Shown here is a 117-nucleotide RNA sequence from Methyloprofundus sedimenti, a member of the family "Group II catalytic intron D1-D4-2". Pairs were carried over by alignment from the consensus structure. Taxonomically the source falls in Methyloprofundus (Bacteria, Pseudomonadati, Methylococcales, Methylococcaceae). The match comes from Rfam's covariance-model search (105 bits). Its family is annotated with Group II intron splicing in the Gene Ontology. The family has 144 seed sequences and 1,231 matches in Rfam 15.1.

RNA sequence: GAGGGUAGGCCCCUCGAUUUCGACAGUCAGUUGUUGAAAUCAAACCACCCGAUGCGGCUACUGUAAAGAGCAGUGGUCGUGAGCGAUUUGGGAAAAGGCCGCCUUGAGCGGUCAGGU
Numbered sequence: 001g002a003g004g005g006u007a008g009g010c011c012c013c014u015c016g017a018u019u020u021c022g023a024c025a026g027u028c029a030g031u032u033g034u035u036g037a038a039a040u041c042a043a044a045c046c047a048c049c050c051g052a053u054g055c056g057g058c059u060a061c062u063g064u065a066a067a068g069a070g071c072a073g074u075g076g077u078c079g080u081g082a083g084c085g086a087u088u089u090g091g092g093a094a095a096a097g098g099c100c101g102c103c104u105u106g107a108g109c110g111g112u113c114a115g116g117u
Base pairs, nucleotide, nucleotide: 001015002014003013004012005011016041017040018039019038020037021036023034024033025032026031046116048092049091050090051089052088053086054080055079057077058076059075061073062072063071064070097113098112099111100110101109102108